[Rfam]
RNA sequence: CCAUGGAGGAGGCUGGGGUGGGCCUGAAUGUGCUCCAUGGAGGAGGCUGG
Number, nucleotide and partner (000 for none) at each position: 001c040002c039003a038004u037005g036006g035007a034008g033009g000010a000011g000012g000013c000014u000015g000016g000017g000018g000019u000020g000021g000022g000023c000024c000025u000026g000027a000028a000029u000030g000031u000032g000033c008034u007035c006036c005037a004038u003039g002040g001041a000042g000043g000044a000045g000046g000047c000048u000049g000050g000
RNA: Prion pseudoknot